[Rfam]
RNA sequence: CCCACACCCAUGCGUGUAGGACCCCAAAUGAUCACCAUUAAAUUUGGCACAGAUCUCUAAAAACGUUAUGAUAUGGGUGUGGGGUCUGACUUUUCUAGAGAUCUAUGCCAAAUUUAAUGGUGAUCUUUUGGGGUCUUACACACAUGGGUGUGGG
Dot-bracket structure: .(((((((((((..((((((((((((((.(((.((((((((((((((((.(((((((((.(((.(((((.(((....))).)....)))).))).))))))))).)))))))))))))))).))).))))))))))))))..))))))))))).
Numbered sequence: 001c002c003c004a005c006a007c008c009c010a011u012g013c014g015u016g017u018a019g020g021a022c023c024c025c026a027a028a029u030g031a032u033c034a035c036c037a038u039u040a041a042a043u044u045u046g047g048c049a050c051a052g053a054u055c056u057c058u059a060a061a062a063a064c065g066u067u068a069u070g071a072u073a074u075g076g077g078u079g080u081g082g083g084g085u086c087u088g089a090c091u092u093u094u095c096u097a098g099a100g101a102u103c104u105a106u107g108c109c110a111a112a113u114u115u116a117a118u119g120g121u122g123a124u125c126u127u128u129u130g131g132g133g134u135c136u137u138a139c140a141c142a143c144a145u146g147g148g149u150g151u152g153g154g
Stems, first nucleotide, its partner, number of pairs: 002153011015140014030125003034121016051104009061094003065090004069082001071080003